RNA: Plastid-psbM 3UTR RNA
Organism: Ziziphus jujuba
RNA sequence: GAGACGAUAGUAUGGUAGAGAGAAAGAUUCAUAUUUUCUUACCAUACUAUCUAGUAUUGUCAUUGUACUGUAGAAAGUUUACUAU
Numbered sequence: 001g002a003g004a005c006g007a008u009a010g011u012a013u014g015g016u017a018g019a020g021a022g023a024a025a026g027a028u029u030c031a032u033a034u035u036u037u038c039u040u041a042c043c044a045u046a047c048u049a050u051c052u053a054g055u056a057u058u059g060u061c062a063u064u065g066u067a068c069u070g071u072a073g074a075a076a077g078u079u080u081a082c083u084a085u
Base pairs, nucleotide, nucleotide: 006051007050008049009048010047011046012045013044014043015042016041017040018039020037021036022035023034